Shown here is a 215-nucleotide RNA from Aporhodopirellula rubra, a member of the family "Group II catalytic intron D1-D4-3".
[Rfam]
RNA sequence: GGAAGGGUGACCAACCGUGGGGAGGAAGUCUGCGAAGAUGACCGUUAAUCCAGCACCAAUCUCGUCGCUGGGCGUCUUCUCGCCAAAGCUGUGAGGUGACGAACAGAAACGCCGUCGAGGCAGGCGAAUCUUGAGGUGAGUGGCCCGAGGACCACAAAGCCGUUUCCGACAAGACCGUCUGUAGACGACGCACUUGUGCAGCGAAAGUUCACGUC
Numbered sequence: 001g002g003a004a005g006g007g008u009g010a011c012c013a014a015c016c017g018u019g020g021g022g023a024g025g026a027a028g029u030c031u032g033c034g035a036a037g038a039u040g041a042c043c044g045u046u047a048a049u050c051c052a053g054c055a056c057c058a059a060u061c062u063c064g065u066c067g068c069u070g071g072g073c074g075u076c077u078u079c080u081c082g083c084c085a086a087a088g089c090u091g092u093g094a095g096g097u098g099a100c101g102a103a104c105a106g107a108a109a110c111g112c113c114g115u116c117g118a119g120g121c122a123g124g125c126g127a128a129u130c131u132u133g134a135g136g137u138g139a140g141u142g143g144c145c146c147g148a149g150g151a152c153c154a155c156a157a158a159g160c161c162g163u164u165u166c167c168g169a170c171a172a173g174a175c176c177g178u179c180u181g182u183a184g185a186c187g188a189c190g191c192a193c194u195u196g197u198g199c200a201g202c203g204a205a206a207g208u209u210c211a212c213g214u215c
Base pairs, nucleotide, nucleotide: 001016002015005012006011074215076213078211084207088202089201090200091199092198093197094195095194096193097192098191110190111189113187114186115185120182121181122180124178125177126176129174130173131172135161136160137159140155141154142153143152
Taxonomically the source falls in Aporhodopirellula (Bacteria, Pseudomonadati, Planctomycetia, Pirellulales). A search with the family's covariance model found it, with a score of 63 bits. Pairs were carried over by alignment from the consensus structure.